[Rfam]
Shown here is a 78-nucleotide RNA sequence from Cladocopium goreaui, a member of the family "Mammalian CPEB3 ribozyme".
The family has 14 seed sequences and 5,706 matches in Rfam 15.1.
Taxonomically the source falls in Cladocopium (Eukaryota, Alveolata, Dinophyceae, Symbiodiniaceae).
Pairs were carried over by alignment from the consensus structure, which is taken from published work.
It scores 41 bits against the family's covariance model.
RNA sequence: AAAUUAUAACGAAGAUCUAGGCACAAGCCUUCCCGCGGCGGUCUUGUCAGGUCCUCUGUCGGACCUGCGAAUUGUGCC
Numbered sequence: 001a002a003a004u005u006a007u008a009a010c011g012a013a014g015a016u017c018u019a020g021g022c023a024c025a026a027g028c029c030u031u032c033c034c035g036c037g038g039c040g041g042u043c044u045u046g047u048c049a050g051g052u053c054c055u056c057u058g059u060c061g062g063a064c065c066u067g068c069g070a071a072u073u074g075u076g077c078c
Base pairs, nucleotide, nucleotide: 014043015042016041017040020078021077022076023075024074025073026072027039028038029037048067049066050065051064052063053062054061